Rfam assigns this 155-nucleotide sequence from Neogale vison to the family "U4 spliceosomal RNA".
The organism belongs to Neogale, within Eukaryota.
Rfam classes the family as a spliceosomal small nuclear RNA.
The literature on the family includes a 1997 paper in Nucleic Acids Res by Zwieb, "The uRNA database".
Rfam describes the family as follows. U4 small nuclear RNA (U4 snRNA) is a component of the major U2-dependent spliceosome.
[Rfam]
RNA sequence: AAUUAGGAAAUGUGGCAGUAUCAUAGCCAAUGAGGUUUAUCCGAGGCGCGAUUAUUGCUAAUUGAAAUUAGGAAAUGUGAUAUCACCAGCUUUAUUCUUUCUUAAGAUUGUUUAGGCUAUUUGACAUCUUUGGUGGUUCCAUAAUAAUUUGGGGA
Numbered sequence: 001a002a003u004u005a006g007g008a009a010a011u012g013u014g015g016c017a018g019u020a021u022c023a024u025a026g027c028c029a030a031u032g033a034g035g036u037u038u039a040u041c042c043g044a045g046g047c048g049c050g051a052u053u054a055u056u057g058c059u060a061a062u063u064g065a066a067a068u069u070a071g072g073a074a075a076u077g078u079g080a081u082a083u084c085a086c087c088a089g090c091u092u093u094a095u096u097c098u099u100u101c102u103u104a105a106g107a108u109u110g111u112u113u114a115g116g117c118u119a120u121u122u123g124a125c126a127u128c129u130u131u132g133g134u135g136g137u138u139c140c141a142u143a144a145u146a147a148u149u150u151g152g153g154g155a
Base pairs, nucleotide, nucleotide: 020052021051022050024048026047027046028045034042035041083124084123085122088118089117090116091115092114094112138155139154140153